[Rfam]
RNA: TPP riboswitch aptamer (THI element)
RNA sequence: CAAGUACUCCGCGGGAGCCCUUAAGGGCUGAGAGGGCUUUGUGCCGACCGCUACACCUGAUGCGGGUCAUGCCGCCGUAGGAAGGAAUUGCCUUCGUGCA
Dot-bracket structure: .....(.(((((((..((((....))))......(((.....)))..))))....((((..((((......))))..))))..))).)............